[Rfam]
RNA sequence: AAUGACAAAGAUAAAAACGCAAAGCAUUUUAUUAUGCGAGAGCUGGUAGGUAGCCCAGCCGUCCUAUGUUUAUAGGGUAAGUAACCUGCCCCUCCGGGUUGUCCGUUCUUUGUUUGGAAAUA
Number, nucleotide and partner (000 for none) at each position: 001a000002a000003u000004g114005a113006c112007a111008a110009a109010g108011a107012u000013a000014a000015a000016a000017a000018c000019g000020c000021a000022a000023a000024g000025c000026a000027u000028u000029u000030u000031a000032u000033u000034a000035u000036g000037c000038g000039a000040g000041a000042g059043c058044u057045g056046g055047u000048a000049g000050g000051u000052a000053g000054c000055c046056c045057a044058g043059c042060c000061g078062u077063c076064c075065u074066a073067u000068g000069u000070u000071u000072a000073u066074a065075g064076g063077g062078u061079a000080a000081g000082u000083a000084a000085c000086c000087u000088g099089c098090c097091c096092c000093u000094c000095c000096g091097g090098g089099u088100u000101g000102u000103c000104c000105g000106u000107u011108c010109u009110u008111u007112g006113u005114u004115u000116g000117g000118a000119a000120a000121u000122a000
The record is a 122-nucleotide RNA sequence from Blautia obeum, which matches "azaaromatic riboswitch aptamer (yjdF RNA)" in Rfam. The base pairs follow the family's consensus structure, which is taken from published work. The organism belongs to Blautia obeum, within Bacteria.